[Rfam]
RNA sequence: CGCUGUCAACGACAGCCAGCCAAUGUUUCCAGUAUCAGGAUGAUACGAGUGACCUGUGAGAAACGCCUUCGGGUGGUCACAAGCCAAAGUCAUAUGGAAUGGAGUGUGGUCUGAGACUGACGCCUUCGGGCGACCACAAAGAAAGUUGUCGUAACCUGAAAGACAACUCUGGACGCGGUAAACCU
Numbered sequence: 001c002g003c004u005g006u007c008a009a010c011g012a013c014a015g016c017c018a019g020c021c022a023a024u025g026u027u028u029c030c031a032g033u034a035u036c037a038g039g040a041u042g043a044u045a046c047g048a049g050u051g052a053c054c055u056g057u058g059a060g061a062a063a064c065g066c067c068u069u070c071g072g073g074u075g076g077u078c079a080c081a082a083g084c085c086a087a088a089g090u091c092a093u094a095u096g097g098a099a100u101g102g103a104g105u106g107u108g109g110u111c112u113g114a115g116a117c118u119g120a121c122g123c124c125u126u127c128g129g130g131c132g133a134c135c136a137c138a139a140a141g142a143a144a145g146u147u148g149u150c151g152u153a154a155c156c157u158g159a160a161a162g163a164c165a166a167c168u169c170u171g172g173a174c175g176c177g178g179u180a181a182a183c184c185u
Stems, first nucleotide, its partner, number of pairs: 002016006025064005049080006065074003103118002106137006122131003145167005152181001154179003
This 185-nucleotide RNA from Paramixta manurensis belongs to the Rfam family "STAXI RNA". Taxonomically the source falls in Paramixta (Bacteria, Pseudomonadota, Gammaproteobacteria, Enterobacterales). The base pairs follow the family's consensus structure, which is taken from published work. It is annotated as a small RNA. A search with the family's covariance model found it, with a score of 59 bits.